RNA: Mason-Pfizer monkey virus packaging signal
Organism: Nannospalax galili
RNA sequence: UAGCAAGUUAGUGAGGGCUGGAUACGGAGGAUCCAGUGAGGGAAGAAGACGUUCCCAAAGGAACGCGUUCCACAAGAAUUCUUCACUCUGGACUCGCCACGGGAACCUGCCUCGGCUACAACCAGAAGUAAGUACCGACGUCUGAUUAUGGGACAAGAAUUAAGCAGGCACGAAAUUUAUGUUAGGCAAUUGCAGGAUGCCUUAUGGAUGCGAGGAGUAAAGGUUAAAAUAGAGGAUCUAUUGAGAUUCUUUGAAUUUAUUAAGGAAACCUGUCCUU
Numbered sequence: 001u002a003g004c005a006a007g008u009u010a011g012u013g014a015g016g017g018c019u020g021g022a023u024a025c026g027g028a029g030g031a032u033c034c035a036g037u038g039a040g041g042g043a044a045g046a047a048g049a050c051g052u053u054c055c056c057a058a059a060g061g062a063a064c065g066c067g068u069u070c071c072a073c074a075a076g077a078a079u080u081c082u083u084c085a086c087u088c089u090g091g092a093c094u095c096g097c098c099a100c101g102g103g104a105a106c107c108u109g110c111c112u113c114g115g116c117u118a119c120a121a122c123c124a125g126a127a128g129u130a131a132g133u134a135c136c137g138a139c140g141u142c143u144g145a146u147u148a149u150g151g152g153a154c155a156a157g158a159a160u161u162a163a164g165c166a167g168g169c170a171c172g173a174a175a176u177u178u179a180u181g182u183u184a185g186g187c188a189a190u191u192g193c194a195g196g197a198u199g200c201c202u203u204a205u206g207g208a209u210g211c212g213a214g215g216a217g218u219a220a221a222g223g224u225u226a227a228a229a230u231a232g233a234g235g236a237u238c239u240a241u242u243g244a245g246a247u248u249c250u251u252u253g254a255a256u257u258u259a260u261u262a263a264g265g266a267a268a269c270c271u272g273u274c275c276u277u
Base pairs, nucleotide, nucleotide: 001028011025012024013023037046085129086128087127088125089124094120098114101111102110137154141152142151143150144149161204162203163202164200165199166198211253212252213251214250215249216248217247218246221239222238223237224236225235262277263276264275265274266273